[Rfam]
RNA: mir-544 microRNA precursor family
Organism: Tursiops truncatus
Nucleotides: 098
Stems, first nucleotide, its partner, number of pairs: 003091003009085003014081003018077003021073003025069005031063003
Number, partner (000 for none) and nucleotide at each position: 001000a002000u003091c004090a005089u006000c007000u008000g009085g010084g011083g012000a013000u014081c015080u016079u017000g018077u019076u020075a021073a022072a023071a024000u025069g026068c027067a028066g029065a030000u031063u032062c033061u034000g035000g036000u037000u038000u039000a040000a041000u042000g043000a044000g045000u046000c047000u048000g049000g050000g051000a052000u053000g054000a055000g056000a057000c058000c059000u060000g061033a062032g063031a064000u065029u066028c067027u068026g069025c070000a071023u072022u073021u074000c075020u076019a077018a078000g079016g080015a081014g082000c083011u084010c085009u086000c087000a088000g089005g090004u091003g092000a093000u094000g095000c096000c097000a098000a